[Rfam]
transfer-messenger RNA: a 363-nucleotide RNA from Conchiformibius kuhniae. Bacterial tmRNA, also known as 10Sa RNA or SsrA, is named for its dual tRNA and mRNA-like properties. It is annotated as a non-coding RNA gene. A search with the family's covariance model found it, with a score of 192 bits. For this family Rfam cites "Variations on the tmRNA gene" (Mao et al., RNA Biol, 2010).
RNA sequence: GGGGGCGUCCUUGGUUUCGACGGGGGUUGCGAAGCAGAUGCGGGCAUACCGGGGUCUCAGAAGCCCGUUAAACACUGAACGAAAAUAGUCGCAAACGACGAAACUUACGCUCUGGCAGCUUAAGCCAAGCCGUUGCAACAGUCGGUCAAUGGGCUGUGCGGCGCAAGCCGCGGCAACGUCAUUUUUCAUUGACUGGUUUCCUGUCGGGUUACUUGGCAGGGGAUAAGAUUUUAGGUAACUGGUUUCCCGCGAGCCUGCCGGUCGGCGCAACGGAAAUAAGACACCCAAAUCGACACGGCUAAGUAUGUAGAACGCUUUGUAGAGGACUUUCGGACGGGGGUUCGAUUCCCCCCGCCUCCACCA
Dot-bracket structure: (((((((.............((((((((.....(((((.(((..(((((((((...[[[[...)))).......]]]].................................((.(..((....))).)).[[[[[[.[[[[...(((((((..]]]]...............]]]]]]........)))))))..(((((((((..[[[[[[...)))))))))..........]]]]]].((((((...(.(((.[[[[[[[))).)...))))))..............]]].]]]]...))))).....))))))))....))))))))...(((((.......))))))))))))....
Numbered sequence: 001g002g003g004g005g006c007g008u009c010c011u012u013g014g015u016u017u018c019g020a021c022g023g024g025g026g027u028u029g030c031g032a033a034g035c036a037g038a039u040g041c042g043g044g045c046a047u048a049c050c051g052g053g054g055u056c057u058c059a060g061a062a063g064c065c066c067g068u069u070a071a072a073c074a075c076u077g078a079a080c081g082a083a084a085a086u087a088g089u090c091g092c093a094a095a096c097g098a099c100g101a102a103a104c105u106u107a108c109g110c111u112c113u114g115g116c117a118g119c120u121u122a123a124g125c126c127a128a129g130c131c132g133u134u135g136c137a138a139c140a141g142u143c144g145g146u147c148a149a150u151g152g153g154c155u156g157u158g159c160g161g162c163g164c165a166a167g168c169c170g171c172g173g174c175a176a177c178g179u180c181a182u183u184u185u186u187c188a189u190u191g192a193c194u195g196g197u198u199u200c201c202u203g204u205c206g207g208g209u210u211a212c213u214u215g216g217c218a219g220g221g222g223a224u225a226a227g228a229u230u231u232u233a234g235g236u237a238a239c240u241g242g243u244u245u246c247c248c249g250c251g252a253g254c255c256u257g258c259c260g261g262u263c264g265g266c267g268c269a270a271c272g273g274a275a276a277u278a279a280g281a282c283a284c285c286c287a288a289a290u291c292g293a294c295a296c297g298g299c300u301a302a303g304u305a306u307g308u309a310g311a312a313c314g315c316u317u318u319g320u321a322g323a324g325g326a327c328u329u330u331c332g333g334a335c336g337g338g339g340g341u342u343c344g345a346u347u348c349c350c351c352c353c354g355c356c357u358c359c360a361c362c363a
Stems, first nucleotide, its partner, number of pairs: 001359007021332008034320005040315003045307005050067004057078004112129002115126001118125002131178006138157004145193007196224009207240006242277006251268001253266003257299004261294003336352005